[Rfam]
Shown here is a 31-nucleotide RNA from Helianthus annuus, a member of the family "Iron response element II".
Its family is annotated with response to iron ion in the Gene Ontology.
Rfam classes the family as a cis-regulatory element.
Lineage of the source: Eukaryota > Streptophyta > eudicotyledons > Asteraceae > Helianthus.
From the family's description: IRE, TFRC, SLC40A1, SDHB, SLC11A2, CDC42BPA, ACO2, ALAS2_H.SAPIENS, CDC14A, EPAS1, ALAS2, qoxD, Hao1, NDUFS1, transferrin, Aconitate.
A search with the family's covariance model found it, with a score of 30 bits.
A reference for the family is Koeller et al. (1989), "A cytosolic protein binds to structural elements within the iron regulatory region of the transferrin receptor mRNA", Proc Natl Acad Sci U S A.
RNA sequence: GCAUAAUCUGCAUCAGUGUAUGCAAUUAAUU
Numbered sequence: 001g002c003a004u005a006a007u008c009u010g011c012a013u014c015a016g017u018g019u020a021u022g023c024a025a026u027u028a029a030u031u
Stems, first nucleotide, its partner, number of pairs: 001031001004028004009024005014018001